[Rfam]
A member of the RNA family "Small Cajal body specific RNA 8" from Hymenochirus boettgeri, 125 nucleotides long. The match comes from Rfam's covariance-model search (63 bits). The literature on the family includes a 2002 paper in EMBO J by Darzacq et al., "Cajal body-specific small nuclear RNAs: a novel class of 2'-O-methylation and pseudouridylation guide RNAs". Its family is annotated with nucleolus, RNA processing and Cajal body in the Gene Ontology. scaRNAs are a specific class of small nuclear RNAs which localise to the Cajal bodies and guide the modification of RNA polymerase II transcribed spliceosomal RNAs U1, U2, U4, U5 and U12. U92 belong to the H/ACA box class of guide RNAs as it has the predicted hairpin-hinge-hairpin-tail structure, conserved H/ACA-box motifs and is found associated with GAR1.

RNA sequence: UGGGAAAUUGAUACACGUCAGAGAGAAUACUGCUCUUUUCUGUCACUCUAAUCUCCCUAUAGUAAUUAUGCCCUUUGACCGGACAAAUGAGAGAAAUCGUAACGGACAGAUACGGGCAGACAUCA
Numbered sequence: 001u002g003g004g005a006a007a008u009u010g011a012u013a014c015a016c017g018u019c020a021g022a023g024a025g026a027a028u029a030c031u032g033c034u035c036u037u038u039u040c041u042g043u044c045a046c047u048c049u050a051a052u053c054u055c056c057c058u059a060u061a062g063u064a065a066u067u068a069u070g071c072c073c074u075u076u077g078a079c080c081g082g083a084c085a086a087a088u089g090a091g092a093g094a095a096a097u098c099g100u101a102a103c104g105g106a107c108a109g110a111u112a113c114g115g116g117c118a119g120a121c122a123u124c125a
Base pairs, nucleotide, nucleotide: 002057003056004055005054007052015043016042017041020036021035022034023033069118070117071116072115073114079105080104081103083100084099086097